Shown here is a 129-nucleotide sequence from Carlito syrichta, a member of the family "Small Cajal body specific RNA 4". By type it is a small Cajal body RNA.

RNA sequence: CCUGGAGGACUAAGAAGGCUGAGUCUGAUGAAGCAAGACUUUGCUGAUACAUUCCUCCUAGAAAAAAGGGUGAGAGAGAGCAGCCCUUAUUGGAGAACGUCACAGGGCUGACUGCACUACCCUACACGC
Numbered sequence: 001c002c003u004g005g006a007g008g009a010c011u012a013a014g015a016a017g018g019c020u021g022a023g024u025c026u027g028a029u030g031a032a033g034c035a036a037g038a039c040u041u042u043g044c045u046g047a048u049a050c051a052u053u054c055c056u057c058c059u060a061g062a063a064a065a066a067a068g069g070g071u072g073a074g075a076g077a078g079a080g081c082a083g084c085c086c087u088u089a090u091u092g093g094a095g096a097a098c099g100u101c102a103c104a105g106g107g108c109u110g111a112c113u114g115c116a117c118u119a120c121c122c123u124a125c126a127c128g129c
Base pairs, nucleotide, nucleotide: 002061003060004058005057006056007055008054009053017045018044019043021041022040023039024038025037026036068122069121070120071119079113080112081110082109083108084107085106086105087104091102092101093100
On this family, see Darzacq et al., EMBO J 2002: "Cajal body-specific small nuclear RNAs: a novel class of 2'-O-methylation and pseudouridylation guide RNAs". The match comes from Rfam's covariance-model search (148 bits). scaRNAs are a specific class of small nuclear RNAs which localise to the Cajal bodies and guide the modification of RNA polymerase II transcribed spliceosomal RNAs U1, U2, U4, U5 and U12. ACA26 belongs to the H/ACA box class of guide RNAs as it has the predicted hairpin-hinge-hairpin-tail structure, conserved H/ACA-box motifs and is found associated with GAR1. NCBI's taxonomy places the organism under Eukaryota, Craniata, Theria, Primates, Carlito. The family has 24 seed sequences and 634 matches in Rfam 15.1.